[Rfam]
RNA sequence: UGUGACAGUGAUGAGUUGCACUAUUAGUCAGGCUGGUGAUUGCAGUGGCACAGCCAGCCUGUCCUGACAAGCUGUGGUGACACCUCAAGGUGCACAGGGGCCAUCUGAGUCAUU
Numbered sequence: 001u002g003u004g005a006c007a008g009u010g011a012u013g014a015g016u017u018g019c020a021c022u023a024u025u026a027g028u029c030a031g032g033c034u035g036g037u038g039a040u041u042g043c044a045g046u047g048g049c050a051c052a053g054c055c056a057g058c059c060u061g062u063c064c065u066g067a068c069a070a071g072c073u074g075u076g077g078u079g080a081c082a083c084c085u086c087a088a089g090g091u092g093c094a095c096a097g098g099g100g101c102c103a104u105c106u107g108a109g110u111c112a113u114u
Base pairs, nucleotide, nucleotide: 004113007110024067025066026065027064029061030060031059033057034056035055041050042049043048